RNA sequence: CAAUCACCAUCAUCACCCUGACUAGCCUUUCAGGCUACGUGUGCUGGAAGACGAUCAGGAUCUUCCAGUGAUGCAGAACGCAAAAUCAGCCCCCAGAAGAUCGUAUUCCGGGGGCCUUUUUUU
Numbered sequence: 001c002a003a004u005c006a007c008c009a010u011c012a013u014c015a016c017c018c019u020g021a022c023u024a025g026c027c028u029u030u031c032a033g034g035c036u037a038c039g040u041g042u043g044c045u046g047g048a049a050g051a052c053g054a055u056c057a058g059g060a061u062c063u064u065c066c067a068g069u070g071a072u073g074c075a076g077a078a079c080g081c082a083a084a085a086u087c088a089g090c091c092c093c094c095a096g097a098a099g100a101u102c103g104u105a106u107u108c109c110g111g112g113g114g115c116c117u118u119u120u121u122u123u
Base pairs, nucleotide, nucleotide: 008043009042010041011039013037017034018033019032020031021030044068045067046066047065048064049063050062051061085120088117089115090114091113092112093111094110096108097107098106
This 123-nucleotide sequence from Candidatus Erwinia dacicola belongs to the Rfam family "Histidine operon leader". The family's RNA type in Rfam is cis-regulatory leader. Its family is annotated with histidine biosynthetic process in the Gene Ontology. About the family: At least 6 amino acid operons are known to be regulated by attenuation. In each a leader sequence of 150-200 bp is found upstream of the first gene in the operon. This leader sequence can assume two different secondary structures known as the terminator and the anti-terminator structure. In each case the leader also codes for very short peptide sequence that is rich in the end product amino acid of the operon. The terminator structure is recognised as a termination signal for RNA polymerase and the operon is not transcribed. This structure forms when the cell has an excess of the regulatory amino acid and ribosome movement over the leader transcript is not impeded. When there is a deficiency of the charged tRNA of the regulatory amino acid the ribosome translating the leader peptide stalls and the antiterminator structure can form. This allows RNA polymerase to transcribe the operon. In the Rfam alignment the consensus structure is of the terminator structure. The source organism's lineage runs through Bacteria, Pseudomonadati, Gammaproteobacteria, Enterobacterales and Erwinia. It scores 73 bits against the family's covariance model. The base pairs follow the family's consensus structure, which is taken from published work.